[Rfam]
This 172-nucleotide sequence from Mediterraneibacter torques belongs to the Rfam family "Lysine riboswitch aptamer".
RNA sequence: AACGUAGAUAGAGGUUGCAUUUUUCAUAAGUAAGGUGACGGAUGUGUCAGGAACAGAAGAACUCAUCGGAAAGGGAAAGAUGCCGAAAGGGUAAGAAUCCUGAGUUCUUGUUCUUGGGCAUGACGUGAAUAGCGGCAUGACUGUCAUCGCAAGAUGGAGAGCUAUCUGAAUU
Numbered sequence: 001a002a003c004g005u006a007g008a009u010a011g012a013g014g015u016u017g018c019a020u021u022u023u024u025c026a027u028a029a030g031u032a033a034g035g036u037g038a039c040g041g042a043u044g045u046g047u048c049a050g051g052a053a054c055a056g057a058a059g060a061a062c063u064c065a066u067c068g069g070a071a072a073g074g075g076a077a078a079g080a081u082g083c084c085g086a087a088a089g090g091g092u093a094a095g096a097a098u099c100c101u102g103a104g105u106u107c108u109u110g111u112u113c114u115u116g117g118g119c120a121u122g123a124c125g126u127g128a129a130u131a132g133c134g135g136c137a138u139g140a141c142u143g144u145c146a147u148c149g150c151a152a153g154a155u156g157g158a159g160a161g162c163u164a165u166c167u168g169a170a171u172u
Stems, first nucleotide, its partner, number of pairs: 006167006017083009034067005087115012116142002119139004124134003144157005
NCBI's taxonomy places the organism under Bacteria, Bacillota, Clostridia, Lachnospirales, Mediterraneibacter. Pairs were carried over by alignment from the consensus structure, which is taken from published work.